[Rfam]
RNA sequence: CGAUUGAGCUGGGAUAACUGUGGAUUGCAUCUAUGCUGAUGUUGGCCACCCAGUGAGGUCUUCCAGGGAAACACAGUGGCUUAGCAACCACUGGCAUAUUAACUGGA
Numbered sequence: 001c002g003a004u005u006g007a008g009c010u011g012g013g014a015u016a017a018c019u020g021u022g023g024a025u026u027g028c029a030u031c032u033a034u035g036c037u038g039a040u041g042u043u044g045g046c047c048a049c050c051c052a053g054u055g056a057g058g059u060c061u062u063c064c065a066g067g068g069a070a071a072c073a074c075a076g077u078g079g080c081u082u083a084g085c086a087a088c089c090a091c092u093g094g095c096a097u098a099u100u101a102a103c104u105g106g107a
Base pairs, nucleotide, nucleotide: 002060003059004058009053010052011051012050013049021048022047023046062107063106064105065104066103074093075092076091077090078089079088
About this RNA: Shown here is a 107-nucleotide sequence, a member of the family "Hairpin ribozyme 1 from viruses-like metatranscriptomes". It is one of the family's seed sequences. Rfam links the family to the GO term RNA nuclease activity. The literature on the family includes a 2021 paper in Nucleic Acids Res by Weinberg et al., "Identification of over 200-fold more hairpin ribozymes than previously known in diverse circular RNAs".